[Rfam]
RNA: Group II catalytic intron D1-D4-3
RNA sequence: AUCAUCGCGAGGUGCUGUCUGAAGGAAGCCGCAGGCGAAUCUCCGACCCGACGAACAGGAACCGCAUAGGAGGCGUGUCGUUGUGGGCGAGCAGGCCAAGUUCUGUGAACCCGAUGUCACCCGGAGCGGCGAUACGUAUAUGCGGCGGGCGUGGAGUGAAGGUCACGCGUC
Numbered sequence: 001a002u003c004a005u006c007g008c009g010a011g012g013u014g015c016u017g018u019c020u021g022a023a024g025g026a027a028g029c030c031g032c033a034g035g036c037g038a039a040u041c042u043c044c045g046a047c048c049c050g051a052c053g054a055a056c057a058g059g060a061a062c063c064g065c066a067u068a069g070g071a072g073g074c075g076u077g078u079c080g081u082u083g084u085g086g087g088c089g090a091g092c093a094g095g096c097c098a099a100g101u102u103c104u105g106u107g108a109a110c111c112c113g114a115u116g117u118c119a120c121c122c123g124g125a126g127c128g129g130c131g132a133u134a135c136g137u138a139u140a141u142g143c144g145g146c147g148g149g150c151g152u153g154g155a156g157u158g159a160a161g162g163u164c165a166c167g168c169g170u171c
Stems, first nucleotide, its partner, number of pairs: 001016001003014004028171001030169003035163002041156005047149004062145006073137003077133007085112003091106004